About this RNA
The family of this 68-nucleotide RNA sequence from Candidatus Parepulonipiscium sp. PG-Nuni2H_MBin01 is "RAGATH-18 RNA". It is annotated as a small RNA. Actinobacteria, Firmicutes, Fusobacteria, Thermotogae (1 example). The match comes from Rfam's covariance-model search (64 bits).
RNA sequence: CCUUUGGAGUGUUAUAUCAAAUGACGGUAGCAAGCUAUAUAGCAAAGUCAGACACGAUGAAUAAGGAA
Numbered sequence: 001c002c003u004u005u006g007g008a009g010u011g012u013u014a015u016a017u018c019a020a021a022u023g024a025c026g027g028u029a030g031c032a033a034g035c036u037a038u039a040u041a042g043c044a045a046a047g048u049c050a051g052a053c054a055c056g057a058u059g060a061a062u063a064a065g066g067a068a
Stems, first nucleotide, its partner, number of pairs: 001066004009055005022050003030043002